[Rfam]
RNA sequence: UUCGAUAUAAAAGCGCCGGAACUCAUUUUGAGUUGACGAGGUCAGGGUUUAUCGAUUUUUCGGCGGGUGCCCUGCGGCAUACGGCUGCCGACAAAGGUUCCACAAAAGCAAAAAGCGAUUUUUGCUACAAACGGGACUGGGCCAAAAU
Numbered sequence: 001u002u003c004g005a006u007a008u009a010a011a012a013g014c015g016c017c018g019g020a021a022c023u024c025a026u027u028u029u030g031a032g033u034u035g036a037c038g039a040g041g042u043c044a045g046g047g048u049u050u051a052u053c054g055a056u057u058u059u060u061c062g063g064c065g066g067g068u069g070c071c072c073u074g075c076g077g078c079a080u081a082c083g084g085c086u087g088c089c090g091a092c093a094a095a096g097g098u099u100c101c102a103c104a105a106a107a108g109c110a111a112a113a114a115g116c117g118a119u120u121u122u123u124g125c126u127a128c129a130a131a132c133g134g135g136a137c138u139g140g141g142c143c144a145a146a147a148u
Base pairs, nucleotide, nucleotide: 020034021033022032023031024030025029043074044073045072046071047070052063053062054061055060075090076089077088078087079086096138097137098136099135100134101133108125109124110123111122112121113120114119
A member of the RNA family "glmS glucosamine-6-phosphate activated ribozyme aptamer" from Mahella australiensis, 148 nucleotides long.
Rfam describes the family as follows. This entry contains a glucosamine-6-phosphate activated ribozyme that is found in the mRNA for GlmS. GlmS is an enzyme that uses fructose-6-phosphate and glutamine to generate glucosamine-6-phosphate.
Rfam classes the family as a riboswitch.